Shown here is a 78-nucleotide sequence from Oncorhynchus kisutch, a member of the family "mir-27 microRNA precursor family". The base pairs follow the family's consensus structure, which was predicted with RNAalifold. Rfam 15.1 lists 1,440 matches to the family in 645 species.
RNA sequence: GCCAGGUGCUGAGUUUAGUUGACUCGUGAACAGGGAGUGUUUUCAAUUGGUUCACAGUGGCUAAGUUCUUUACCUGAU
Numbered sequence: 001g002c003c004a005g006g007u008g009c010u011g012a013g014u015u016u017a018g019u020u021g022a023c024u025c026g027u028g029a030a031c032a033g034g035g036a037g038u039g040u041u042u043u044c045a046a047u048u049g050g051u052u053c054a055c056a057g058u059g060g061c062u063a064a065g066u067u068c069u070u071u072a073c074c075u076g077a078u
Stems, first nucleotide, its partner, number of pairs: 011068010026055006
It scores 57 bits against the family's covariance model. On this family, see Yao et al., J Virol 2008: "MicroRNA profile of Marek's disease virus-transformed T-cell line MSB-1: predominance of virus-encoded microRNAs".